[Rfam]
RNA sequence: GUCAGAGCGGCUCCUCCAGGACUGUCCAACCUGAGAAUGGUGAAAUAUGAGGUCAAUCUCAGGUUUGUCAGCCCAAGAGGUGUUGGCUCAGU
Numbered sequence: 001g002u003c004a005g006a007g008c009g010g011c012u013c014c015u016c017c018a019g020g021a022c023u024g025u026c027c028a029a030c031c032u033g034a035g036a037a038u039g040g041u042g043a044a045a046u047a048u049g050a051g052g053u054c055a056a057u058c059u060c061a062g063g064u065u066u067g068u069c070a071g072c073c074c075a076a077g078a079g080g081u082g083u084u085g086g087c088u089c090a091g092u
Stems, first nucleotide, its partner, number of pairs: 005089003008085004013080004019074002022071003026067001028065009038055002
RNA: mir-1388 microRNA precursor family
Organism: Anguilla anguilla